[Rfam]
RNA sequence: UGAAGAGCUCUGACACUAAGAUGUGUGGCUGCCGUGGGUUGGUGGGAGCCAGGCCUGCCCAGGGUCAGUGUUACCAGCACUCAGU
Numbered sequence: 001u002g003a004a005g006a007g008c009u010c011u012g013a014c015a016c017u018a019a020g021a022u023g024u025g026u027g028g029c030u031g032c033c034g035u036g037g038g039u040u041g042g043u044g045g046g047a048g049c050c051a052g053g054c055c056u057g058c059c060c061a062g063g064g065u066c067a068g069u070g071u072u073a074c075c076a077g078c079a080c081u082c083a084g085u
Stems, first nucleotide, its partner, number of pairs: 001083003007078003012072006022063001024061002027059003031054003037050004
RNA: mir-9215 microRNA precursor family
Organism: Cnephaeus nilssonii